[Rfam]
RNA sequence: CGCUCAUCCAGAGGGGCAGAGGGAACGGCCCGACGAAGCCCCGGCAACCGGCGUCACUCGUGACGUACCGGUGCCAAUUCCGACCCACCCGUGGGAAAGAUGAGGA
Numbered sequence: 001c002g003c004u005c006a007u008c009c010a011g012a013g014g015g016g017c018a019g020a021g022g023g024a025a026c027g028g029c030c031c032g033a034c035g036a037a038g039c040c041c042c043g044g045c046a047a048c049c050g051g052c053g054u055c056a057c058u059c060g061u062g063a064c065g066u067a068c069c070g071g072u073g074c075c076a077a078u079u080c081c082g083a084c085c086c087a088c089c090c091g092u093g094g095g096a097a098a099g100a101u102g103a104g105g106a
Stems, first nucleotide, its partner, number of pairs: 003104006013042005021031003026082003043075004048071002051066003079098001084095004

This 106-nucleotide RNA from Kutzneria viridogrisea belongs to the Rfam family "SAM riboswitch aptamer (S box leader)". Pairs were carried over by alignment from the consensus structure, which is taken from published work. The organism belongs to Kutzneria viridogrisea, within Bacteria.